Description:
Shown here is an 87-nucleotide sequence from Gossypium raimondii, a member of the family "MIR7486 microRNA precursor family".
RNA sequence: CAUUUCAGCGCGAUUUGCUGACGUGGACACAAAUCGCGUCCUCUGAAACGCGAUUUGUUGCUAUGUCAGCAAAACGCGCUGACGUGG
Numbered sequence: 001c002a003u004u005u006c007a008g009c010g011c012g013a014u015u016u017g018c019u020g021a022c023g024u025g026g027a028c029a030c031a032a033a034u035c036g037c038g039u040c041c042u043c044u045g046a047a048a049c050g051c052g053a054u055u056u057g058u059u060g061c062u063a064u065g066u067c068a069g070c071a072a073a074a075c076g077c078g079c080u081g082a083c084g085u086g087g
Stems, first nucleotide, its partner, number of pairs: 001086003005082008014073008023064004029058010
The source organism's lineage runs through Eukaryota, Streptophytina, Embryophyta, Malvaceae and Gossypium.